[Rfam]
A member of the RNA family "mir-2024 microRNA precursor family" from Nematostella vectensis, 77 nucleotides long.
NCBI's taxonomy places the organism under Eukaryota, Metazoa, Eumetazoa, Edwardsiidae, Nematostella.
A reference for the family is Grimson et al. (2008), "Early origins and evolution of microRNAs and Piwi-interacting RNAs in animals", Nature.
Rfam links the family to the GO terms miRNA-mediated post-transcriptional gene silencing and RISC complex.
It is one of the family's seed sequences.
RNA sequence: GUAGACUUGCUUCAGAGUAUUGGCGCUGGGCAAAAGGUCACAUUUUGCACAUUACCAAUAUUCUGAGGCACUUCUGC
Numbered sequence: 001g002u003a004g005a006c007u008u009g010c011u012u013c014a015g016a017g018u019a020u021u022g023g024c025g026c027u028g029g030g031c032a033a034a035a036g037g038u039c040a041c042a043u044u045u046u047g048c049a050c051a052u053u054a055c056c057a058a059u060a061u062u063c064u065g066a067g068g069c070a071c072u073u074c075u076g077c
Base pairs, nucleotide, nucleotide: 008070009069010068011067012066013065014064016062017061018060019059020058021057022056023055027051028050030048031047032046033045034044035043036041